[Rfam]
RNA: L19-Flavobacteria ribosomal protein leader
Nucleotides: 028
Stems, first nucleotide, its partner, number of pairs: 001028004008023001010020003
Number, partner (000 for none) and nucleotide at each position: 001028c002027a003026a004025c005000c006000u007000c008023u009000g010020a011019u012018c013000a014000c015000c016000g017000a018012g019011a020010u021000g022000c023008a024000u025004g026003u027002u028001g